[Rfam]
RNA sequence: UAAGUUCUUCGGGGCGGGGUGUGAUUCCCCACCGGCGGUAUAGUCCGCGACCUGCCAUAGUUUUUUAUGACAGCUGAUCUGGUGUAAUUCCAGAACCGACAGUAUAGUCUGGAUGAGAGAAGGAACUG
Numbered sequence: 001u002a003a004g005u006u007c008u009u010c011g012g013g014g015c016g017g018g019g020u021g022u023g024a025u026u027c028c029c030c031a032c033c034g035g036c037g038g039u040a041u042a043g044u045c046c047g048c049g050a051c052c053u054g055c056c057a058u059a060g061u062u063u064u065u066u067a068u069g070a071c072a073g074c075u076g077a078u079c080u081g082g083u084g085u086a087a088u089u090c091c092a093g094a095a096c097c098g099a100c101a102g103u104a105u106a107g108u109c110u111g112g113a114u115g116a117g118a119g120a121a122g123g124a125a126c127u128g
Base pairs, nucleotide, nucleotide: 005124006123007122008121009120010119017029018028019027031108032107033098034097035048036047037046038045043096044095052073053072078094079093080092081091082090100111101110102109
A member of the RNA family "FMN riboswitch aptamer (RFN element)" from Lachnospiraceae bacterium AM48-27BH, 128 nucleotides long. The source organism's lineage runs through Bacteria, Bacillati, Bacillota, Clostridia and Lachnospiraceae.